[Rfam]
RNA: Clostridiales-1 RNA
RNA sequence: UAAAAGUGUCGUGAAUGACCAGACAGGCCGGGAAUUUAUACCCUGUACUAGAUGGACAUUCGACGACCUGACUCGUAUAAGCAAGUAGGGCUUUUGCCUGGAUUGCGAAUACAGGCAGCGAUGUCGAGAGUGCACAGCACGAAGACAUCGACUUUUC
Numbered sequence: 001u002a003a004a005a006g007u008g009u010c011g012u013g014a015a016u017g018a019c020c021a022g023a024c025a026g027g028c029c030g031g032g033a034a035u036u037u038a039u040a041c042c043c044u045g046u047a048c049u050a051g052a053u054g055g056a057c058a059u060u061c062g063a064c065g066a067c068c069u070g071a072c073u074c075g076u077a078u079a080a081g082c083a084a085g086u087a088g089g090g091c092u093u094u095u096g097c098c099u100g101g102a103u104u105g106c107g108a109a110u111a112c113a114g115g116c117a118g119c120g121a122u123g124u125c126g127a128g129a130g131u132g133c134a135c136a137g138c139a140c141g142a143a144g145a146c147a148u149c150g151a152c153u154u155u156u157c
Base pairs, nucleotide, nucleotide: 002156003155004154005153006152007151008067009066010065011064014060015059016058017057019055020054021053025049026048029045030043031042032041034039072115073114075112076111077110078109081106082105083104084103088099089098090097091096119150120149121148122147123146124145125144130140131139132138133137